[Rfam]
RNA sequence: AAAGGAUGAAUCCAAAAGGAUAGCAUGAUCCCAAAUAUAUAUUGUGAGAAAUUAAUUAACAACAUAAUUAGAUUCGGGAUCAAUGCGAUCCCUUUGGAUGCCUCCUC
Number, nucleotide and partner (000 for none) at each position: 001a000002a000003a106004g105005g104006a103007u000008g101009a000010a099011u098012c097013c096014a095015a094016a093017a000018g091019g090020a089021u088022a000023g086024c085025a084026u082027g081028a080029u079030c078031c077032c000033a000034a000035a074036u000037a000038u000039a000040u000041a000042u000043u000044g000045u000046g000047a000048g000049a000050a000051a000052u000053u000054a000055a000056u000057u000058a000059a000060c000061a000062a000063c000064a000065u000066a000067a000068u000069u000070a000071g000072a000073u000074u035075c000076g000077g031078g030079a029080u028081c027082a026083a000084u025085g024086c023087g000088a021089u020090c019091c018092c000093u016094u015095u014096g013097g012098a011099u010100g000101c008102c000103u006104c005105c004106u003107c000
Background
A member of the RNA family "mir-393 microRNA precursor family" from Trifolium subterraneum, 107 nucleotides long. For this family Rfam cites "Role of microRNAs and other sRNAs of plants in their changing environments" (Kruszka et al., J Plant Physiol, 2012). The base pairs follow the family's consensus structure. NCBI's taxonomy places the organism under Eukaryota, Embryophyta, Tracheophyta, Papilionoideae, Trifolium.